A member of the RNA family "Acido-Lenti-1 RNA" from Desulfonema ishimotonii, 45 nucleotides long.
The family's RNA type in Rfam is small RNA.
Pairs were carried over by alignment from the consensus structure, which is taken from published work.
RNA sequence: CCCGGGGCUUCGCCCCGGGCUGUAUUAAUCCGCCCCUUCGGGGCU
Numbered sequence: 001c002c003c004g005g006g007g008c009u010u011c012g013c014c015c016c017g018g019g020c021u022g023u024a025u026u027a028a029u030c031c032g033c034c035c036c037u038u039c040g041g042g043g044c045u
Base pairs, nucleotide, nucleotide: 001019002018003017004016005015006014007013008012032044033043034042035041036040